Shown here is a 75-nucleotide sequence from Kutzneria sp. 744, a member of the family "ASpks TB sRNA". It scores 79 bits against the family's covariance model.
[Rfam]
RNA sequence: CUUGACGGAGCCCAGCCACACCGGGUCGUCCUCGGUGCGCUCCUGGCCGUAGGUGGCGAGCAGGGCCUGGGCCUC
Numbered sequence: 001c002u003u004g005a006c007g008g009a010g011c012c013c014a015g016c017c018a019c020a021c022c023g024g025g026u027c028g029u030c031c032u033c034g035g036u037g038c039g040c041u042c043c044u045g046g047c048c049g050u051a052g053g054u055g056g057c058g059a060g061c062a063g064g065g066c067c068u069g070g071g072c073c074u075c
Stems, first nucleotide, its partner, number of pairs: 014026001016024002031071003038065001043060002047056003